The record is a 75-nucleotide sequence from Kitasatospora sp. MMS16-BH015, which matches "ASpks TB sRNA" in Rfam.
[Rfam]
Nucleotides: 075
Base pairs, nucleotide, nucleotide: 015025016024017023033069038065039064043060044059045058047056048055049054
Number, partner (000 for none) and nucleotide at each position: 001000c002000u003000u004000c005000a006000a007000c008000g009000a010000c011000c012000c013000g014000a015025g016024c017023c018000a019000g020000a021000g022000c023017g024016g025015c026000c027000g028000u029000u030000c031000g032000g033069c034000c035000g036000g037000a038065c039064g040000g041000u042000c043060c044059u045058g046000a047056c048055c049054g050000u051000a052000g053000g054049u055048g056047g057000c058045c059044a060043g061000c062000a063000g064039c065038g066000c067000c068000u069033g070000g071000g072000c073000c074000u075000c